[Rfam]
RNA sequence: CCUCACUGAAGCCGGGUUUCGUUAACAGCGGGCUGUCAUUUCGAAAUCAACAAGUUCGUUGUCGACGAAACCUGCAUGCUGUGUGG
Numbered sequence: 001c002c003u004c005a006c007u008g009a010a011g012c013c014g015g016g017u018u019u020c021g022u023u024a025a026c027a028g029c030g031g032g033c034u035g036u037c038a039u040u041u042c043g044a045a046a047u048c049a050a051c052a053a054g055u056u057c058g059u060u061g062u063c064g065a066c067g068a069a070a071c072c073u074g075c076a077u078g079c080u081g082u083g084u085g086g
Stems, first nucleotide, its partner, number of pairs: 001086002004083003013074009030057005
Rfam assigns this 86-nucleotide sequence from Drosophila ananassae to the family "mir-981 microRNA precursor family". NCBI's taxonomy places the organism under Eukaryota, Neoptera, Muscomorpha, Drosophila, ananassae species complex. Pairs were carried over by alignment from the consensus structure, which was predicted with RNAalifold.